[Rfam]
RNA sequence: AUCACGAACUCGUCAAUUCCUCCCACAAUAAGGCCCUAUUUCGGUCAAGUGCCGGUCAUGAGCCCUUGGGAUAAAUCAACCGUUGCCUCAAGGCCCGGUCCGGUUCGAUCUCCGGAUUCCUCAGCCCCCCAGCCCCCCGGGGAUCUUCGGACCGGGCCGAUUGAGUUCAAGUUGAGUAGCGUUCGAUUCAAUCCCCUAUGCCUUCGGGCCGGCUAACGCCGGCCCGAUUUU
Numbered sequence: 001a002u003c004a005c006g007a008a009c010u011c012g013u014c015a016a017u018u019c020c021u022c023c024c025a026c027a028a029u030a031a032g033g034c035c036c037u038a039u040u041u042c043g044g045u046c047a048a049g050u051g052c053c054g055g056u057c058a059u060g061a062g063c064c065c066u067u068g069g070g071a072u073a074a075a076u077c078a079a080c081c082g083u084u085g086c087c088u089c090a091a092g093g094c095c096c097g098g099u100c101c102g103g104u105u106c107g108a109u110c111u112c113c114g115g116a117u118u119c120c121u122c123a124g125c126c127c128c129c130c131a132g133c134c135c136c137c138c139g140g141g142g143a144u145c146u147u148c149g150g151a152c153c154g155g156g157c158c159g160a161u162u163g164a165g166u167u168c169a170a171g172u173u174g175a176g177u178a179g180c181g182u183u184c185g186a187u188u189c190a191a192u193c194c195c196c197u198a199u200g201c202c203u204u205c206g207g208g209c210c211g212g213c214u215a216a217c218g219c220c221g222g223c224c225c226g227a228u229u230u231u
Base pairs, nucleotide, nucleotide: 036174042049085167087165088164089163090162092158093157094156095155096154097153098152099151100150101149102148107145108144109143110142111141112140113139114138115137124133125132206225207224208223209222210221211220212219213218